About this RNA
DUF3800-IX RNA: a 71-nucleotide RNA.
[Rfam]
RNA sequence: GAUCUAGUGUCCGAACUGUUACCGUAUGGUAUGCGUUUCUGAGGUUCCUCAGAAUAGGCACUAGAUCGAAC
Numbered sequence: 001g002a003u004c005u006a007g008u009g010u011c012c013g014a015a016c017u018g019u020u021a022c023c024g025u026a027u028g029g030u031a032u033g034c035g036u037u038u039c040u041g042a043g044g045u046u047c048c049u050c051a052g053a054a055u056a057g058g059c060a061c062u063a064g065a066u067c068g069a070a071c
Stems, first nucleotide, its partner, number of pairs: 001067008011058002017035003020031004037054005
The base pairs follow the family's consensus structure, which is taken from published work. From the family's description: Actinobacteria, Firmicutes (1 example), Nitrospirae, Proteobacteria, Verrucomicrobia (1 example). Rfam's curators put it in the seed alignment.